skipping-rope RNA: a 109-nucleotide RNA. The family's consensus secondary structure is taken from published work. The family's RNA type in Rfam is small RNA.
[Rfam]
Nucleotides: 109
Base pairs, nucleotide, nucleotide: 001109002108003107004106005105006104007103008102011030012029013028014027015026021095022094023093024092033071034070035069083101084100085099086098087097
Number, partner (000 for none) and nucleotide at each position: 001109a002108u003107u004106a005105a006104g007103a008102g009000a010000g011030g012029u013028g014027g015026a016000a017000a018000u019000a020000u021095g022094g023093a024092c025000a026015u027014c028013c029012a030011c031000a032000a033071g034070c035069c036000u037000u038000a039000u040000a041000c042000c043000c044000u045000u046000u047000g048000g049000c050000a051000u052000u053000u054000a055000u056000g057000c058000a059000g060000g061000g062000c063000a064000g065000u066000a067000u068000u069035g070034g071033u072000a073000u074000a075000a076000g077000a078000g079000a080000g081000a082000u083101g084100c085099a086098g087097g088000g089000c090000g091000a092024g093023u094022c095021c096000u097087c098086c099085u100084g101083c102008c103007u104006c105005u106004u107003a108002a109001u